Background:
A member of the RNA family "Molybdenum/Tungsten riboswitch aptamer (Moco RNA motif)" from Pasteurella felis, 144 nucleotides long. NCBI's taxonomy places the organism under Bacteria, Gammaproteobacteria, Pasteurellales, Pasteurellaceae, Pasteurella.
RNA sequence: UUUAACGCAUAACUCCGAGCUUACUUAACCUAAGUUUUCUGCGUGAAAAUAGGGUGGUAACGCCAAUAACGUUUCGUUAUUCAGGGAUACGCUGGAAACGGUUUGUCCUCUCUCAUUUUAGAAAGGUGUGAAAUGCAGACAAUU
Numbered sequence: 001u002u003u004a005a006c007g008c009a010u011a012a013c014u015c016c017g018a019g020c021u022u023a024c025u026u027a028a029c030c031u032a033a034g035u036u037u038u039c040u041g042c043g044u045g046a047a048a049a050u051a052g053g054g055u056g057g058u059a060a061c062g063c064c065a066a067u068a069a070c071g072u073u074u075c076g077u078u079a080u081u082c083a084g085g086g087a088u089a090c091g092c093u094g095g096a097a098a099c100g101g102u103u104u105g106u107c108c109u110c111u112c113u114c115a116u117u118u119u120a121g122a123a124a125g126g127u128g129u130g131a132a133a134u135g136c137a138g139a140c141a142a143u144u
Base pairs, nucleotide, nucleotide: 003138006135012129013128015126016125019063020062022060025057026056028055029054030053034050035049036048037047038046039045066080067079068078069077070076084109085108086107087106088105089104091102092101093100094099110121111120